A member of the RNA family "Glutamine-II riboswitch aptamer", 62 nucleotides long. The base pairs follow the family's consensus structure, which is taken from published work. On this family, see Huang et al., Nucleic Acids Res 2019: "Structure and ligand binding of the glutamine-II riboswitch". Rfam links the family to the GO term glutamine binding.
[Rfam]
Nucleotides: 062
Base pairs, nucleotide, nucleotide: 004052005051006050007049008048010026011025012024013023014022037062038061039060040059041058042057043055044054
Number, partner (000 for none) and nucleotide at each position: 001000u002000c003000a004052c005051g006050u007049u008048c009000a010026c011025c012024u013023c014022a015000c016000c017000u018000c019000c020000g021000g022014u023013g024012a025011g026010g027000c028000g029000c030000a031000g032000u033000u034000c035000g036000a037062c038061u039060c040059a041058g042057g043055c044054c045000a046000u047000g048008g049007a050006a051005c052004g053000g054044g055043g056000a057042c058041c059040u060039g061038a062037g